[Rfam]
RNA sequence: UUUUACUAAAACGACAAAAGCCCUACCUCUCUUUCGUCCUUGCGGCUCCUUGACCGCGCCAGUGUGAAUAAGUGUUACCAAUAGUCA
Numbered sequence: 001u002u003u004u005a006c007u008a009a010a011a012c013g014a015c016a017a018a019a020g021c022c023c024u025a026c027c028u029c030u031c032u033u034u035c036g037u038c039c040u041u042g043c044g045g046c047u048c049c050u051u052g053a054c055c056g057c058g059c060c061a062g063u064g065u066g067a068a069u070a071a072g073u074g075u076u077a078c079c080a081a082u083a084g085u086c087a
Stems, first nucleotide, its partner, number of pairs: 034067003039062002041058005047052001
RNA: BsrC
Organism: Paenibacillus aquistagni